Shown here is a 47-nucleotide RNA from Perca fluviatilis, a member of the family "Histone 3' UTR stem-loop". The family's consensus secondary structure is taken from published work. By type it is a cis-regulatory element. Rfam describes the family as follows. The mRNAs of metazoan histone genes lack a poly-A tail. 3' end processing occurs at a site between a highly conserved stem-loop (modelled by this family) and a purine rich region around 20 nts downstream (the histone downstream element, or HDE). Lineage of the source: Eukaryota > Neopterygii > Teleostei > Acanthomorphata > Perca.

[Rfam]
RNA sequence: ACAACGGCCCUUUUAAGGGCCACUCAAGUCUUUCUAAAGAGCAGCUU
Numbered sequence: 001a002c003a004a005c006g007g008c009c010c011u012u013u014u015a016a017g018g019g020c021c022a023c024u025c026a027a028g029u030c031u032u033u034c035u036a037a038a039g040a041g042c043a044g045c046u047u
Stems, first nucleotide, its partner, number of pairs: 006021006